[Rfam]
This 113-nucleotide sequence from Holothuria leucospilota belongs to the Rfam family "Small nucleolar RNA SNORD67". The base pairs follow the family's consensus structure. Taxonomically the source falls in Holothuria (Eukaryota, Opisthokonta, Echinodermata, Echinozoa). It is annotated as a C/D-box small nucleolar RNA. Its family is annotated with nucleolus and RNA processing in the Gene Ontology.
RNA sequence: UGUCAGUGAUGAGUUGCACAUGAGGUCAAAGGUUAUGACCCUUGUGGGGUUACCUGUGACUCUGAUGUAUCUGCGAUGACAGUCUUGAGUGCACAGGGGCCAUCUGAGACAUG
Numbered sequence: 001u002g003u004c005a006g007u008g009a010u011g012a013g014u015u016g017c018a019c020a021u022g023a024g025g026u027c028a029a030a031g032g033u034u035a036u037g038a039c040c041c042u043u044g045u046g047g048g049g050u051u052a053c054c055u056g057u058g059a060c061u062c063u064g065a066u067g068u069a070u071c072u073g074c075g076a077u078g079a080c081a082g083u084c085u086u087g088a089g090u091g092c093a094c095a096g097g098g099g100c101c102a103u104c105u106g107a108g109a110c111a112u113g
Stems, first nucleotide, its partner, number of pairs: 006110001021065001023063002025060004030055003037051005
About this RNA:
On this family, see Huttenhofer et al., EMBO J 2001: "RNomics: an experimental approach that identifies 201 candidates for novel, small, non-messenger RNAs in mouse".